RNA sequence: CUAUGGUCCUCUCGCAAUGCUAGUUCGUGAACUUGGUCAGGCCCGGAAGGGAGCAGCCACAGCGAAUGAUGCGUGUGCCGGGAUGCGGCUGUAGGGU
Number, nucleotide and partner (000 for none) at each position: 001c000002u000003a000004u091005g090006g089007u088008c087009c000010u083011c082012u081013c080014g079015c075016a000017a074018u073019g072020c071021u000022a000023g067024u066025u065026c064027g063028u062029g000030a000031a000032c000033u000034u059035g058036g057037u056038c000039a000040g000041g000042c051043c050044c049045g000046g000047a000048a000049g044050g043051g042052a000053g000054c000055a000056g037057c036058c035059a034060c000061a000062g028063c027064g026065a025066a024067u023068g000069a000070u000071g020072c019073g018074u017075g015076u000077g000078c000079c014080g013081g012082g011083a010084u000085g000086c000087g008088g007089c006090u005091g004092u000093a000094g000095g000096g000097u000